[Rfam]
RNA sequence: AUGCUGUUGAAAUGAUGAUUUUCUCAUGUCUCUUCUCUGACAGAAUAAUGUAGAGAGCAUAAACACCUCUGAUCUCAGCAU
Numbered sequence: 001a002u003g004c005u006g007u008u009g010a011a012a013u014g015a016u017g018a019u020u021u022u023c024u025c026a027u028g029u030c031u032c033u034u035c036u037c038u039g040a041c042a043g044a045a046u047a048a049u050g051u052a053g054a055g056a057g058c059a060u061a062a063a064c065a066c067c068u069c070u071g072a073u074c075u076c077a078g079c080a081u
Stems, first nucleotide, its partner, number of pairs: 001081005